[Rfam]
A member of the RNA family "mir-2807 microRNA precursor family" from Bombyx mori, 84 nucleotides long.
Its family is annotated with miRNA-mediated post-transcriptional gene silencing and RISC complex in the Gene Ontology.
RNA sequence: UUAACUCAUUUUUUUAUGGACUAGGAACGUUUGCCUACGUUUGCCGCUAGGGGCGCUGUUUCAACUGCAUACAAAUUUGAGUUA
Number, nucleotide and partner (000 for none) at each position: 001u000002u000003a000004a000005c000006u000007c000008a078009u000010u000011u075012u074013u073014u000015u071016a070017u000018g068019g000020a066021c000022u064023a000024g062025g061026a060027a059028c058029g057030u000031u000032u000033g000034c052035c051036u050037a000038c000039g047040u046041u000042u000043g000044c000045c000046g040047c039048u000049a000050g036051g035052g034053g000054c000055g000056c000057u029058g028059u027060u026061u025062c024063a000064a022065c000066u020067g000068c018069a000070u016071a015072c000073a013074a012075a011076u000077u000078u008079g000080a000081g000082u000083u000084a000